[Rfam]
RNA sequence: GUUUGAAUGAUGACUUAUGUUGUCGGAUACCCCUUCAUGAUUUCCAUGAGUGAAGCCUAAGAGUCUGACAAAC
Numbered sequence: 001g002u003u004u005g006a007a008u009g010a011u012g013a014c015u016u017a018u019g020u021u022g023u024c025g026g027a028u029a030c031c032c033c034u035u036c037a038u039g040a041u042u043u044c045c046a047u048g049a050g051u052g053a054a055g056c057c058u059a060a061g062a063g064u065c066u067g068a069c070a071a072a073c
Stems, first nucleotide, its partner, number of pairs: 001073005

A member of the RNA family "Small nucleolar RNA SNORD101" from Chrysochloris asiatica, 73 nucleotides long. The family's RNA type in Rfam is C/D-box small nucleolar RNA. Rfam links the family to the GO terms nucleolus and RNA processing. The source organism's lineage runs through Eukaryota, Vertebrata, Euteleostomi, Tetrapoda and Chrysochloris. On this family, see Vitali et al., Nucleic Acids Res 2003: "Identification of 13 novel human modification guide RNAs".